Shown here is an 80-nucleotide RNA sequence from Bradyrhizobium sp. ORS 278, a member of the family "Makes More Granules Regulator RNA (mmgR)". Rfam links the family to the GO terms DNA-templated transcription, termination, response to nitrogen compound and protein binding. From the family's description: SuhB later renamed mmgR (makes more granules regulator) was a putative non-coding RNA found multiple times in the Agrobacterium tumefaciens genome and related alpha-proteobacteria. The pairing is the family consensus, mapped onto this sequence.

RNA sequence: GAAUUCAGCCCUUCUUGGGGCGUUUCCUCCCUGGACUUGGGCCGCCUGCACGCUACGUGCGGGCGGCUUCUUUCUGUGGA
Numbered sequence: 001g002a003a004u005u006c007a008g009c010c011c012u013u014c015u016u017g018g019g020g021c022g023u024u025u026c027c028u029c030c031c032u033g034g035a036c037u038u039g040g041g042c043c044g045c046c047u048g049c050a051c052g053c054u055a056c057g058u059g060c061g062g063g064c065g066g067c068u069u070c071u072u073u074c075u076g077u078g079g080a
Stems, first nucleotide, its partner, number of pairs: 008021004043065009